[Rfam]
RNA sequence: GUGGGGGAACAAAGAUGAUCAGACACCGUCGUAGUCCACUACAGUAAACCAUGCCAGCCAGGCUUUGGUGAGGCAAGAUCCUCUACUUCAUCAGUGCCAUGCCCCCUACAACGAGAAAUCCACAGCCUGUGGGU
Numbered sequence: 001g002u003g004g005g006g007g008a009a010c011a012a013a014g015a016u017g018a019u020c021a022g023a024c025a026c027c028g029u030c031g032u033a034g035u036c037c038a039c040u041a042c043a044g045u046a047a048a049c050c051a052u053g054c055c056a057g058c059c060a061g062g063c064u065u066u067g068g069u070g071a072g073g074c075a076a077g078a079u080c081c082u083c084u085a086c087u088u089c090a091u092c093a094g095u096g097c098c099a100u101g102c103c104c105c106c107u108a109c110a111a112c113g114a115g116a117a118a119u120c121c122a123c124a125g126c127c128u129g130u131g132g133g134u
Stems, first nucleotide, its partner, number of pairs: 001042003004037002009035002014030004053134003057126002061098002065094009075084001113120002